[Rfam]
RNA sequence: GUUGAAGCUCCAUCUAUAAAUGGAUAAUACUUCGGUUUCGGUUUUAGUGUAUACGAGUCGUUGAAGGAGCAAUACCCAAUUUCUUGUUUUCUCAAGAGGUUUGGUAUUGCUCU
Numbered sequence: 001g002u003u004g005a006a007g008c009u010c011c012a013u014c015u016a017u018a019a020a021u022g023g024a025u026a027a028u029a030c031u032u033c034g035g036u037u038u039c040g041g042u043u044u045u046a047g048u049g050u051a052u053a054c055g056a057g058u059c060g061u062u063g064a065a066g067g068a069g070c071a072a073u074a075c076c077c078a079a080u081u082u083c084u085u086g087u088u089u090u091c092u093c094a095a096g097a098g099g100u101u102u103g104g105u106a107u108u109g110c111u112c113u
Stems, first nucleotide, its partner, number of pairs: 009024005066113010078101002081098005
The record is a 113-nucleotide sequence from Chloranthus spicatus, which matches "Plastid-psbA-1 3UTR RNA" in Rfam. For this family Rfam cites "Retrograde signaling in plants: A critical review focusing on the GUN pathway and beyond" (Richter et al., Plant Commun, 2023). By type it is a cis-regulatory element. Its Rfam clan is "Plastid-psbA 3UTR RNA clan". Plastid psbA-1 is a non-coding RNA (ncRNA) present in plastids. It was identified in inverted repeat sequences in the 3 prime untranslate region (3UTR) of photosystem II quinone-binding protein (psbA).